[Rfam]
RNA sequence: AGAAACAUUCGGCAAAACCGUCGUGAGGCGGCGACGCAAAGCCUUGAGACUUCAAUACGAUGAAGCCAGUCCGGUUGCAAUU
Numbered sequence: 001a002g003a004a005a006c007a008u009u010c011g012g013c014a015a016a017a018c019c020g021u022c023g024u025g026a027g028g029c030g031g032c033g034a035c036g037c038a039a040a041g042c043c044u045u046g047a048g049a050c051u052u053c054a055a056u057a058c059g060a061u062g063a064a065g066c067c068a069g070u071c072c073g074g075u076u077g078c079a080a081u082u
Stems, first nucleotide, its partner, number of pairs: 012037002018031005040076004046071002048067001050065005
Dot-bracket structure: ...........((....(((((....)))))....))..((((..(((.(((((......))))).)..)).))))......
Overview
This 82-nucleotide sequence from Ruminococcus sp. CAG:382 belongs to the Rfam family "c-di-GMP-I riboswitch aptamer". The base pairs follow the family's consensus structure, which is taken from published work. Taxonomically the source falls in Ruminococcus (Bacteria, Bacillati, Eubacteriales, Oscillospiraceae).